[Rfam]
RNA sequence: GUACUUACCUGGCAGGGGAGAUACCAUGAUCACAAAGGUGGUUUUCCCAGGGUGAGGCUUAUCCAUUGCACUCUGGAUGUGCUGACCCCAGCGAUUUCCCCAAAUGCGUGAAACUCAACUGCAUAAUUUGUGGUAGUGGGGAAAAAUAAAAAAAUAAAAUAAAAUGCAUACUCCUCA
Numbered sequence: 001g002u003a004c005u006u007a008c009c010u011g012g013c014a015g016g017g018g019a020g021a022u023a024c025c026a027u028g029a030u031c032a033c034a035a036a037g038g039u040g041g042u043u044u045u046c047c048c049a050g051g052g053u054g055a056g057g058c059u060u061a062u063c064c065a066u067u068g069c070a071c072u073c074u075g076g077a078u079g080u081g082c083u084g085a086c087c088c089c090a091g092c093g094a095u096u097u098c099c100c101c102a103a104a105u106g107c108g109u110g111a112a113a114c115u116c117a118a119c120u121g122c123a124u125a126a127u128u129u130g131u132g133g134u135a136g137u138g139g140g141g142a143a144a145a146a147u148a149a150a151a152a153a154a155u156a157a158a159a160u161a162a163a164a165u166g167c168a169u170a171c172u173c174c175u176c177a
Base pairs, nucleotide, nucleotide: 012122013121014120015119016048017047018046019045020044021043023042024041025040026039027038050089051088052087054086056083057082058081060079061078062077063076064075093116094115095113096111097110100108138176139175140174141173142172